[Rfam]
Nucleotides: 074
Base pairs, nucleotide, nucleotide: 001072002071005068006067007066008065009064010062011061013059014058015057020052021051022050023049024048025047026045028043029042
Number, partner (000 for none) and nucleotide at each position: 001072g002071u003000a004000g005068u006067u007066g008065c009064u010062c011061u012000c013059c014058a015057g016000a017000a018000g019000g020052c021051c022050u023049g024048g025047a026045u027000g028043u029042g030000g031000a032000g033000g034000a035000g036000c037000u038000a039000a040000g041000u042029c043028a044000a045026a046000c047025u048024c049023c050022a051021g052020g053000a054000g055000a056000g057015u058014u059013g060000u061011g062010g063000a064009a065008g066007u067006g068005g069000u070000a071002a072001c073000a074000c
Shown here is a 74-nucleotide RNA sequence from Balaenoptera musculus, a member of the family "mir-920 microRNA precursor family".
It scores 75 bits against the family's covariance model.